[Rfam]
This 122-nucleotide RNA from Natronincola peptidivorans belongs to the Rfam family "FMN riboswitch aptamer (RFN element)". Its family is annotated with FMN binding in the Gene Ontology.
RNA sequence: UUUUUUCUUCAGGGCAGGGUGAAAUUCCCGACCGGCGGUUAUAGUCCGCGACUCGACAUUAAGUCGACUGAGCUGGUGAAAUUCCAGCACCGACAGUAAAGUCUGGAUGGGAGAAGAUGUGA
Numbered sequence: 001u002u003u004u005u006u007c008u009u010c011a012g013g014g015c016a017g018g019g020u021g022a023a024a025u026u027c028c029c030g031a032c033c034g035g036c037g038g039u040u041a042u043a044g045u046c047c048g049c050g051a052c053u054c055g056a057c058a059u060u061a062a063g064u065c066g067a068c069u070g071a072g073c074u075g076g077u078g079a080a081a082u083u084c085c086a087g088c089a090c091c092g093a094c095a096g097u098a099a100a101g102u103c104u105g106g107a108u109g110g111g112a113g114a115a116g117a118u119g120u121g122a
Stems, first nucleotide, its partner, number of pairs: 004119001006117005017029003031102002033092002035049004044090002053067002072088005094105003